This 173-nucleotide RNA sequence from Halalkalibacterium halodurans belongs to the Rfam family "Group II catalytic intron D1-D4-3". The source organism's lineage runs through Bacteria, Bacillati, Bacillota, Bacilli and Halalkalibacterium halodurans. Gene Ontology term of the family: Group II intron splicing. The sequence is in the family's curated seed alignment.

[Rfam]
RNA sequence: UCUGGGGUGACCCAGAAUCUGAGGGAAGUCGGCGGCAAACCUCCGCUUCUAGGAACACGAACUUCAUAGGAGUUUGGGUAUACUUGGAAGAGGUUGCGAAACAAAUCAAAGUCCUUACUGCCGAAGGGUAUAUCAAGUAAAUGAAGAGAAGACAUGGAGGGGAAGAAUGUGUG
Numbered sequence: 001u002c003u004g005g006g007g008u009g010a011c012c013c014a015g016a017a018u019c020u021g022a023g024g025g026a027a028g029u030c031g032g033c034g035g036c037a038a039a040c041c042u043c044c045g046c047u048u049c050u051a052g053g054a055a056c057a058c059g060a061a062c063u064u065c066a067u068a069g070g071a072g073u074u075u076g077g078g079u080a081u082a083c084u085u086g087g088a089a090g091a092g093g094u095u096g097c098g099a100a101a102c103a104a105a106u107c108a109a110a111g112u113c114c115u116u117a118c119u120g121c122c123g124a125a126g127g128g129u130a131u132a133u134c135a136a137g138u139a140a141a142u143g144a145a146g147a148g149a150a151g152a153c154a155u156g157g158a159g160g161g162g163a164a165g166a167a168u169g170u171g172u173g
Stems, first nucleotide, its partner, number of pairs: 001016006030171002036165001040160006046151005062146006074137002077134007086114003092107004
Dot-bracket structure: ((((((....)))))).............((....(...(((((((((((...........((((((......((.(((((((..(((...((((........))))....))).............))))))).))...)))))))))))...))))))....)....))..